[Rfam]
RNA: T-box leader
Organism: Chthonomonadaceae bacterium
RNA sequence: UGUAAAGCGUUGAUAAGGCACAUUAGGCAAAUUUCGUGACUUUCAGAGAGCCGUCGGGUGGUGCGAGACGGUAGCACGGUUUGUCGAAACUCUCCUUUGAGCUGAACGUUGAACCCUUCCGCGAUUGACCUAAAUCUUCGUUGAAGCCAGUAGGCGAACCGGUUUGCGUCCGAUAUUGCGCUACUAAGUGGUCGGCUGUUUUUCUCUCUUAUAUAAGAGAAGCGAAAACAUCGUUCGUGUUUCGAUAACGCGAGCCGAUUACAAGGGUGGUACCGCGUGAGGAAUAGCCUCUCGUCCCUUGA
Numbered sequence: 001u002g003u004a005a006a007g008c009g010u011u012g013a014u015a016a017g018g019c020a021c022a023u024u025a026g027g028c029a030a031a032u033u034u035c036g037u038g039a040c041u042u043u044c045a046g047a048g049a050g051c052c053g054u055c056g057g058g059u060g061g062u063g064c065g066a067g068a069c070g071g072u073a074g075c076a077c078g079g080u081u082u083g084u085c086g087a088a089a090c091u092c093u094c095c096u097u098u099g100a101g102c103u104g105a106a107c108g109u110u111g112a113a114c115c116c117u118u119c120c121g122c123g124a125u126u127g128a129c130c131u132a133a134a135u136c137u138u139c140g141u142u143g144a145a146g147c148c149a150g151u152a153g154g155c156g157a158a159c160c161g162g163u164u165u166g167c168g169u170c171c172g173a174u175a176u177u178g179c180g181c182u183a184c185u186a187a188g189u190g191g192u193c194g195g196c197u198g199u200u201u202u203u204c205u206c207u208c209u210u211a212u213a214u215a216a217g218a219g220a221a222g223c224g225a226a227a228a229c230a231u232c233g234u235u236c237g238u239g240u241u242u243c244g245a246u247a248a249c250g251c252g253a254g255c256c257g258a259u260u261a262c263a264a265g266g267g268u269g270g271u272a273c274c275g276c277g278u279g280a281g282g283a284a285u286a287g288c289c290u291c292u293c294g295u296c297c298c299u300u301g302a
Base pairs, nucleotide, nucleotide: 007102008101015097016096017095018094026085027084028083029082030081031080040074041073050072051071052070053069054068055067104159107156108155109154110153160172161171162170191259192258193257194256195255196254197253264299265298266297267296275295276294277293279291280290281289282288